[Rfam]
RNA sequence: GAGGGUUCUGAUUUCUGACGGGUUUAAUGUGGAGCACCACAGUGAGAUCAGGAUUUAUAGUAAGCCGACCGUCUGGGCAGCAUUU
Numbered sequence: 001g002a003g004g005g006u007u008c009u010g011a012u013u014u015c016u017g018a019c020g021g022g023u024u025u026a027a028u029g030u031g032g033a034g035c036a037c038c039a040c041a042g043u044g045a046g047a048u049c050a051g052g053a054u055u056u057a058u059a060g061u062a063a064g065c066c067g068a069c070c071g072u073c074u075g076g077g078c079a080g081c082a083u084u085u
Stems, first nucleotide, its partner, number of pairs: 003056010015044001017073005029040004064078003
ZMP/ZTP riboswitch aptamer (pfl RNA motif): an 85-nucleotide RNA from Lactonifactor longoviformis. A search with the family's covariance model found it, with a score of 49 bits. For this family Rfam cites "Recognition of the bacterial alarmone ZMP through long-distance association of two RNA subdomains" (Jones and Ferre-D'Amare, Nat Struct Mol Biol, 2015).